[Rfam]
RNA sequence: AAGUCUUUUAAACUAGUCCAGAGAGGCUGGGAAAGAUAUCUCGUAGCUAAUUAAACUAAUAUAGUUAUGUAUAGAUAAAAUCCUUAUACUCUUUUUGGGUAUAAGGAUUUUUUUA
Numbered sequence: 001a002a003g004u005c006u007u008u009u010a011a012a013c014u015a016g017u018c019c020a021g022a023g024a025g026g027c028u029g030g031g032a033a034a035g036a037u038a039u040c041u042c043g044u045a046g047c048u049a050a051u052u053a054a055a056c057u058a059a060u061a062u063a064g065u066u067a068u069g070u071a072u073a074g075a076u077a078a079a080a081u082c083c084u085u086a087u088a089c090u091c092u093u094u095u096u097g098g099g100u101a102u103a104a105g106g107a108u109u110u111u112u113u114u115a
Stems, first nucleotide, its partner, number of pairs: 003037007013030006043072003048067006055060001077111015
RNA: PyrR binding site